[Rfam]
RNA sequence: GUGGACAUCUUACCGGACAGUGCUGGAUUUCUCGGCUCGACUCUAACACUGUCUGGUAACGAUGUUCAA
Numbered sequence: 001g002u003g004g005a006c007a008u009c010u011u012a013c014c015g016g017a018c019a020g021u022g023c024u025g026g027a028u029u030u031c032u033c034g035g036c037u038c039g040a041c042u043c044u045a046a047c048a049c050u051g052u053c054u055g056g057u058a059a060c061g062a063u064g065u066u067c068a069a
Base pairs, nucleotide, nucleotide: 002068003067004066005065006064007063008062009061010059011058012057013056014055015054016053017052018051019050020049021048022047024045025044026043027042
mir-8/mir-141/mir-200 microRNA precursor family: a 69-nucleotide RNA sequence from Bos taurus. Clan: mir-8 microRNA precursor clan. Its family is annotated with RISC complex and miRNA-mediated post-transcriptional gene silencing in the Gene Ontology.